This 119-nucleotide RNA from Tumebacillus algifaecis belongs to the Rfam family "TPP riboswitch aptamer (THI element)". Pairs were carried over by alignment from the consensus structure, which is taken from published work. The match comes from Rfam's covariance-model search (63 bits). Lineage of the source: Bacteria > Bacillota > Bacilli > Caryophanales > Tumebacillus.
[Rfam]
RNA sequence: GUAAUCCCCUAGGGGUGCUUCCAUCAUAGCGGAGGCUGAGAGAAGGCACUUUUUCCUUCAACCCUUGGAACCUGACUCGACUGGGUAAUGCCAGCGUAGGGAAGCGGGAUGGCCGACAC
Numbered sequence: 001g002u003a004a005u006c007c008c009c010u011a012g013g014g015g016u017g018c019u020u021c022c023a024u025c026a027u028a029g030c031g032g033a034g035g036c037u038g039a040g041a042g043a044a045g046g047c048a049c050u051u052u053u054u055c056c057u058u059c060a061a062c063c064c065u066u067g068g069a070a071c072c073u074g075a076c077u078c079g080a081c082u083g084g085g086u087a088a089u090g091c092c093a094g095c096g097u098a099g100g101g102a103a104g105c106g107g108g109a110u111g112g113c114c115g116a117c118a119c
Stems, first nucleotide, its partner, number of pairs: 006107002009104002011065004017036005043058004071100004081094004